[Rfam]
Nucleotides: 100
Base pairs, nucleotide, nucleotide: 005037006036007035008034009033010032015026016025017024018023058091059090060089061088062087063086064085065084066083067082068081069080070079071078
Number, partner (000 for none) and nucleotide at each position: 001000g002000c003000u004000u005037c006036u007035c008034u009033a010032c011000a012000g013000a014000a015026g016025u017024c018023u019000g020000u021000g022000a023018a024017g025016a026015u027000a028000g029000u030000a031000g032010g033009u034008a035007g036006a037005g038000u039000g040000u041000u042000u043000g044000u045000u046000u047000u048000g049000u050000u051000u052000g053000u054000g055000u056000g057000u058091g059090a060089u061088g062087c063086a064085u065084u066083c067082u068081u069080a070079u071078c072000u073000a074000g075000u076000g077000u078071g079070a080069u081068a082067a083066g084065g085064a086063u087062g088061c089060a090059u091058c092000u093000u094000u095000u096000u097000u098000a099000u100000u